[Rfam]
RNA sequence: ACUGGGGCGGGGGGGAAUCCCUCAGCCUGGAUAGUGAGAGGGUGCAGGCCAGGCCAAGGGACCCCACUGGUGCAUG
Number, nucleotide and partner (000 for none) at each position: 001a000002c000003u074004g073005g000006g071007g000008c069009g068010g067011g000012g065013g064014g063015g062016a000017a000018u061019c060020c059021c058022u057023c000024a000025g054026c053027c052028u000029g050030g049031a000032u047033a000034g045035u044036g043037a000038g000039a000040g000041g000042g000043u036044g035045c034046a000047g032048g000049c030050c029051a000052g027053g026054c025055c000056a000057a022058g021059g020060g019061a018062c015063c014064c013065c012066a000067c010068u009069g008070g000071u006072g000073c004074a003075u000076g000
RNA: mir-9193 microRNA precursor family